[Rfam]
RNA: Small nucleolar RNA SNORD72
RNA sequence: UGCUUACCGAUGAUGGUGGAAAAAAAAUGUCUGAACAAAUGAAUUCUAAAUGAUAUCACUCAUUUCUCUGAGGUAAGCU
Number, nucleotide and partner (000 for none) at each position: 001u000002g078003c077004u076005u075006a074007c073008c072009g000010a000011u000012g000013a000014u000015g000016g000017u000018g000019g000020a000021a000022a000023a000024a000025a000026a000027a000028u000029g000030u000031c000032u000033g000034a000035a000036c000037a000038a000039a000040u000041g000042a000043a000044u000045u000046c000047u000048a000049a000050a000051u000052g000053a000054u000055a000056u000057c000058a000059c000060u000061c000062a000063u000064u000065u000066c000067u000068c000069u000070g000071a000072g008073g007074u006075a005076a004077g003078c002079u000